This 134-nucleotide sequence from Peromyscus maniculatus belongs to the Rfam family "Small nucleolar RNA SNORA61". ACA61 is a member of the H/ACA class of snoRNA that guide the sites of modification of uridines to pseudouridines. Rfam links the family to the GO terms nucleolus and RNA processing. NCBI's taxonomy places the organism under Eukaryota, Opisthokonta, Deuterostomia, Rodentia, Peromyscus maniculatus.
Nucleotides: 134
Base pairs, nucleotide, nucleotide: 003058005056006055007054019047020046021045022044023043025040026039027038028037080121081120082119083118084117085116094112095111096110
Number, partner (000 for none) and nucleotide at each position: 001000a002000u003058c004000c005056u006055c007054u008000a009000c010000u011000u012000c013000c014000c015000u016000u017000u018000c019047c020046c021045a022044u023043u024000g025040g026039a027038u028037c029000c030000c031000a032000g033000g034000a035000c036000u037028g038027g039026u040025u041000u042000g043023g044022g045021u046020g047019g048000u049000c050000c051000u052000a053000a054007a055006g056005a057000a058003g059000a060000a061000a062000a063000g064000g065000c066000a067000u068000a069000g070000u071000g072000g073000a074000g075000g076000a077000a078000g079000c080121u081120g082119g083118c084117c085116u086000c087000c088000c089000a090000a091000c092000g093000u094112u095111g096110u097000a098000g099000u100000c101000u102000g103000c104000u105000g106000c107000a108000g109000g110096g111095c112094g113000u114000g115000c116085a117084g118083g119082c120081c121080a122000u123000a124000u125000u126000g127000a128000a129000a130000c131000a132000g133000g134000c